[Rfam]
The family of this 227-nucleotide part of an RNA is "Bacterial large subunit ribosomal RNA". A search with the family's covariance model found it, with a score of 2790 bits. Its family is annotated with structural constituent of ribosome and ribosome in the Gene Ontology. The family's consensus secondary structure is taken from published work.
RNA sequence: GACUUACAUUCAGUGGCAAGCUUAACCGAAUAGGGGAGGCGUAGCGAAAGCGAGUCCGAAUAGGGCGUUCAGUCGCUGGGUGUAGACCCGAAACCAGAUGAUCUAGCCAUGGCCAGGUUGAAGGUGCGGUAACACGCACUGGAGGACCGAACCCACUAAUGUUGAAAAAUUAGGGGAUGAGCUGUGGCUAGGGGUGAAAGGCUAAACAAAUCUGGAAAUAGCUGGUU
Numbered sequence: 001g002a003c004u005u006a007c008a009u010u011c012a013g014u015g016g017c018a019a020g021c022u023u024a025a026c027c028g029a030a031u032a033g034g035g036g037a038g039g040c041g042u043a044g045c046g047a048a049a050g051c052g053a054g055u056c057c058g059a060a061u062a063g064g065g066c067g068u069u070c071a072g073u074c075g076c077u078g079g080g081u082g083u084a085g086a087c088c089c090g091a092a093a094c095c096a097g098a099u100g101a102u103c104u105a106g107c108c109a110u111g112g113c114c115a116g117g118u119u120g121a122a123g124g125u126g127c128g129g130u131a132a133c134a135c136g137c138a139c140u141g142g143a144g145g146a147c148c149g150a151a152c153c154c155a156c157u158a159a160u161g162u163u164g165a166a167a168a169a170u171u172a173g174g175g176g177a178u179g180a181g182c183u184g185u186g187g188c189u190a191g192g193g194g195u196g197a198a199a200g201g202c203u204a205a206a207c208a209a210a211u212c213u214g215g216a217a218a219u220a221g222c223u224g225g226u227u
Base pairs, nucleotide, nucleotide: 005084006083007082008081009080010079011078012077013076014075015074016073017072020040021039022038023037026034027033044051045050054066055065056064057063087225088224090222094215095214096213097212098211099210103191104190105189106188107187108186109185110184111183112182113181114179116148117147118146119145123140124139125138126137127136128135152176153175154174156173157172158171159170160169193203194202195201